The family of this 110-nucleotide RNA sequence from Metabacillus sediminilitoris is "BsrF".
Pairs were carried over by alignment from the consensus structure, which was predicted with WAR.
The organism belongs to Metabacillus, within Bacteria.
RNA sequence: GCGAUGAGCUGAAUUGUGUAAGUCGACAGACAAGCCAAUAGGCUAAAUGCACGAUGUGGCGUGCAGUCUGUCGCCUCAAUACGCAAAACGACGUCUAACUAGACGUCGUU
Numbered sequence: 001g002c003g004a005u006g007a008g009c010u011g012a013a014u015u016g017u018g019u020a021a022g023u024c025g026a027c028a029g030a031c032a033a034g035c036c037a038a039u040a041g042g043c044u045a046a047a048u049g050c051a052c053g054a055u056g057u058g059g060c061g062u063g064c065a066g067u068c069u070g071u072c073g074c075c076u077c078a079a080u081a082c083g084c085a086a087a088a089c090g091a092c093g094u095c096u097a098a099c100u101a102g103a104c105g106u107c108g109u110u
Stems, first nucleotide, its partner, number of pairs: 014079003018075001024073008034043002048065002051062003087110009